The record is an 82-nucleotide sequence from Truepera radiovictrix, which matches "tRNA" in Rfam.
NCBI's taxonomy places the organism under Bacteria, Deinococcota, Trueperales, Trueperaceae, Truepera radiovictrix.
A search with the family's covariance model found it, with a score of 55 bits.
RNA sequence: GCCGAAGUGGCGGAAUUGGUAGACGCGCACGAUUCAGGGUCGUGUGCCUCACGGCGUGUGGGUUCGAGUCCCACCUUCGGCA
Numbered sequence: 001g002c003c004g005a006a007g008u009g010g011c012g013g014a015a016u017u018g019g020u021a022g023a024c025g026c027g028c029a030c031g032a033u034u035c036a037g038g039g040u041c042g043u044g045u046g047c048c049u050c051a052c053g054g055c056g057u058g059u060g061g062g063u064u065c066g067a068g069u070c071c072c073a074c075c076u077u078c079g080g081c082a
Stems, first nucleotide, its partner, number of pairs: 001081007010026003028044005058074005